[Rfam]
RNA sequence: CGCGGCGAACCGCCGAGUCCAUGCAGUCAGGAGGCAUGGAGCCGGGGACCCAAUCGGCCCUCCCAGGGCCACGGGGUGAAUCGGUGAUCGCACCGUAGGGCGAGACUUCCCCACCCGAACCCGUCAGCUAACCCGGUAGGCACAAGCGGAAGACCCU
Numbered sequence: 001c002g003c004g005g006c007g008a009a010c011c012g013c014c015g016a017g018u019c020c021a022u023g024c025a026g027u028c029a030g031g032a033g034g035c036a037u038g039g040a041g042c043c044g045g046g047g048a049c050c051c052a053a054u055c056g057g058c059c060c061u062c063c064c065a066g067g068g069c070c071a072c073g074g075g076g077u078g079a080a081u082c083g084g085u086g087a088u089c090g091c092a093c094c095g096u097a098g099g100g101c102g103a104g105a106c107u108u109c110c111c112c113a114c115c116c117g118a119a120c121c122c123g124u125c126a127g128c129u130a131a132c133c134c135g136g137u138a139g140g141c142a143c144a145a146g147c148g149g150a151a152g153a154c155c156c157u
Base pairs, nucleotide, nucleotide: 012141013140014139018040019039020038021037022036023035024034041137042136043135044134045133046132051073074122075121076120082095083094084093085092098116099115100114
This 157-nucleotide sequence from Thermopolyspora flexuosa belongs to the Rfam family "c-di-AMP riboswitch aptamer (ydaO/yuaA leader)".
Gene Ontology terms of the family: regulation of gene expression and cyclic-di-AMP binding.